RNA: mcrA RNA
RNA sequence: GACGAAGACGUUCGUCACCGUAGAAGUCUACUGGUUUCAUAACUACGGAUA
Numbered sequence: 001g002a003c004g005a006a007g008a009c010g011u012u013c014g015u016c017a018c019c020g021u022a023g024a025a026g027u028c029u030a031c032u033g034g035u036u037u038c039a040u041a042a043c044u045a046c047g048g049a050u051a
Stems, first nucleotide, its partner, number of pairs: 001016006